[Rfam]
RNA sequence: AUCUUAUCCUGAGUUGGUGGAGGGACAGGCCCUAGGAAACCCAGCAACCGUCACUGCAUAUAGUGAAAUGGUGCUAACCUGAUGCAAGGUAUUGGACCUUGAACGAUAAGAG
Numbered sequence: 001a002u003c004u005u006a007u008c009c010u011g012a013g014u015u016g017g018u019g020g021a022g023g024g025a026c027a028g029g030c031c032c033u034a035g036g037a038a039a040c041c042c043a044g045c046a047a048c049c050g051u052c053a054c055u056g057c058a059u060a061u062a063g064u065g066a067a068a069u070g071g072u073g074c075u076a077a078c079c080u081g082a083u084g085c086a087a088g089g090u091a092u093u094g095g096a097c098c099u100u101g102a103a104c105g106a107u108a109a110g111a112g
Stems, first nucleotide, its partner, number of pairs: 002111007013042001016041003022032003026084002029080001043075004048071002051066003085101006
Dot-bracket structure: .(((((((....(..(((...(((.[[.[)))......))))((((.((.(((..........)))...))))))....]..]]((((((.....))))))...))))))).
The record is a 112-nucleotide sequence from Pontibacillus yanchengensis, which matches "SAM riboswitch aptamer (S box leader)" in Rfam. The organism belongs to Pontibacillus yanchengensis, within Bacteria. A search with the family's covariance model found it, with a score of 74 bits.